[Rfam]
RNA sequence: UUGGGUCAUAUGAUGAUUAUAAGCAUAGUUCAACUGAUAAUCUCUGUGAUUAGAACAAAACCUUUUUAGUCUUUCGCUCCUAUCUGAUGACCAAU
Numbered sequence: 001u002u003g004g005g006u007c008a009u010a011u012g013a014u015g016a017u018u019a020u021a022a023g024c025a026u027a028g029u030u031c032a033a034c035u036g037a038u039a040a041u042c043u044c045u046g047u048g049a050u051u052a053g054a055a056c057a058a059a060a061c062c063u064u065u066u067u068a069g070u071c072u073u074u075c076g077c078u079c080c081u082a083u084c085u086g087a088u089g090a091c092c093a094a095u
Base pairs, nucleotide, nucleotide: 004092005091006090007089008088
A member of the RNA family "Small nucleolar RNA snR60/Z15/Z230/Z193/J17" from Salix brachista, 95 nucleotides long.
Its Rfam clan is "SNORD77 clan".
The match comes from Rfam's covariance-model search (80 bits).
On this family, see Lowe and Eddy, Science 1999: "A computational screen for methylation guide snoRNAs in yeast".